The family of this 69-nucleotide RNA sequence from Salipiger marinus is "Singlet oxygen resistance RNA X". SorX (RSs2461)like SorY is a singlet oxygen induced sRNA that counteracts oxidative stress by targeting mRNA for a transporter in Rhodobacter. It also has an impact on resistance against organic hydroperoxides. It targets SD sequence of potA mRNA via an aSD sequence. The aSD sequence and some neighbouring nucleotides are identical to the one of SorY (targets takP mRNA).

[Rfam]
RNA sequence: CGCCCUCUGGCGCAUCAUCUUCAUACCUCCCUGUUGGACUUCGGCCGAGCCUUGUGCUCGGCCUUUUUU
Numbered sequence: 001c002g003c004c005c006u007c008u009g010g011c012g013c014a015u016c017a018u019c020u021u022c023a024u025a026c027c028u029c030c031c032u033g034u035u036g037g038a039c040u041u042c043g044g045c046c047g048a049g050c051c052u053u054g055u056g057c058u059c060g061g062c063c064u065u066u067u068u069u
Stems, first nucleotide, its partner, number of pairs: 008023003043063008

Pairs were carried over by alignment from the consensus structure.
On this family, see Peng et al., RNA Biol 2016: "Regulation of a polyamine transporter by the conserved 3' UTR-derived sRNA SorX confers resistance to singlet oxygen and organic hydroperoxides in Rhodobacter sphaeroides".
By type it is a small RNA.